[Rfam]
RNA sequence: GGUUUAAAGGGUGCGUAGGCGGACUUGUAAGUCCGUGGUGAAAUCUCCGGGCUUAACCCGGAAACUGCCAUGGAUACUAUAAGUCUUGAAUGUUGUGGAGGUUAGCGGAAUAUGUCAUGUAGCGGUGAAAUGCAUAGAUAUGACAUAGAACACCAAUUGCGAAGGCAGCUGGCUACACAACUAUUGACGCUGAGGCACGAAAGCGUGGGGAUCAAACAGGAUUAGAUACCCUGGUAGUCCACGCCCUAAACGAUGGAUACUCGACAUUUGCGAUACACAGCAAGUGUCUGAGCGAAAGCAUUAAGUAUCCCACCUGGGAAGUACGACCGCAAGGUUGAAACUCAAAGGAAU
Number, nucleotide and partner (000 for none) at each position: 001g314002g313003u312004u000005u000006a000007a000008a000009g311010g000011g198012u197013g196014c195015g000016u192017a000018g191019g190020c189021g000022g085023a084024c083025u082026u081027g080028u079029a000030a078031g077032u074033c073034c072035g071036u070037g069038g068039u067040g066041a000042a000043a000044u000045c000046u062047c061048c060049g059050g058051g057052c000053u000054u000055a000056a000057c051058c050059c049060g048061g047062a046063a000064a000065c000066u040067g039068c038069c037070a036071u035072g034073g033074a032075u000076a000077c031078u030079a028080u027081a026082a025083g024084u023085c022086u000087u000088g000089a185090a184091u183092g181093u180094u179095g178096u177097g176098g000099a000100g174101g173102u172103u171104a170105g169106c168107g151108g000109a000110a000111u147112a146113u145114g144115u143116c142117a141118u140119g000120u000121a000122g133123c132124g131125g000126u000127g000128a000129a000130a000131u124132g123133c122134a000135u000136a000137g000138a000139u000140a118141u117142g116143a115144c114145a113146u112147a111148g000149a000150a000151c107152a000153c000154c000155a000156a000157u000158u000159g166160c165161g000162a000163a000164g000165g160166c159167a000168g106169c105170u104171g103172g102173c101174u100175a000176c097177a096178c095179a094180a093181c092182u000183a091184u090185u089186g000187a000188c000189g020190c019191u018192g016193a000194g000195g014196c013197a012198c011199g000200a000201a000202a000203g244204c243205g242206u241207g240208g239209g000210g000211a000212u000213c237214a000215a000216a000217c233218a232219g231220g230221a000222u000223u000224a000225g000226a000227u000228a000229c000230c220231c219232u218233g217234g000235u000236a000237g213238u000239c208240c207241a206242c205243g204244c203245c000246c000247u000248a000249a000250a000251c000252g000253a000254u000255g310256g309257a308258u307259a306260c305261u000262c000263g288264a287265c286266a285267u284268u283269u282270g281271c280272g000273a000274u000275a000276c000277a000278c000279a000280g271281c270282a269283a268284g267285u266286g265287u264288c263289u000290g000291a000292g299293c298294g000295a000296a000297a000298g293299c292300a000301u000302u000303a000304a000305g260306u259307a258308u257309c256310c255311c009312a003313c002314c001315u000316g343317g342318g341319a000320a000321g000322u000323a000324c000325g336326a335327c334328c333329g000330c000331a000332a000333g328334g327335u326336u325337g000338a000339a000340a000341c318342u317343c316344a000345a000346a000347g000348g000349a000350a000351u000
Shown here is a 351-nucleotide part of an RNA from Chitinophaga solisilvae, a member of the family "Bacterial small subunit ribosomal RNA".
It scores 1536 bits against the family's covariance model.
The family has 99 seed sequences and 42,628 matches in Rfam 15.1.
On this family, see Yusupov et al., Science 2001: "Crystal structure of the ribosome at 5.5 A resolution".